[Rfam]
Rfam assigns this 87-nucleotide RNA sequence from Sulfuriferula plumbiphila to the family "c-di-GMP-I riboswitch aptamer". The match comes from Rfam's covariance-model search (54 bits). Rfam links the family to the GO term cyclic-di-GMP binding. Pairs were carried over by alignment from the consensus structure, which is taken from published work.
RNA sequence: CAUUUGCCAGGGUAAAUCCGCUGCAAGGCGGAGACGCAAAAUUUCCCGUCUGAUGGGCUCAGGCACCAUGACAACGGGGUUGCCAAA
Numbered sequence: 001c002a003u004u005u006g007c008c009a010g011g012g013u014a015a016a017u018c019c020g021c022u023g024c025a026a027g028g029c030g031g032a033g034a035c036g037c038a039a040a041a042u043u044u045c046c047c048g049u050c051u052g053a054u055g056g057g058c059u060c061a062g063g064c065a066c067c068a069u070g071a072c073a074a075c076g077g078g079g080u081u082g083c084c085a086a087a
Stems, first nucleotide, its partner, number of pairs: 012037002017032006040081004045077002048072003055066001057064002